[Rfam]
RNA sequence: CCGUGUUCUGUGACUGACUCGGAUGGCGCCGGACUGGUGGGCGCCCGCCGGUCUGUCACAGAACAAGAGA
Numbered sequence: 001c002c003g004u005g006u007u008c009u010g011u012g013a014c015u016g017a018c019u020c021g022g023a024u025g026g027c028g029c030c031g032g033a034c035u036g037g038u039g040g041g042c043g044c045c046c047g048c049c050g051g052u053c054u055g056u057c058a059c060a061g062a063a064c065a066a067g068a069g070a
Stems, first nucleotide, its partner, number of pairs: 002067001004065011016053003020050003025045003
RNA: mir-3017 microRNA precursor family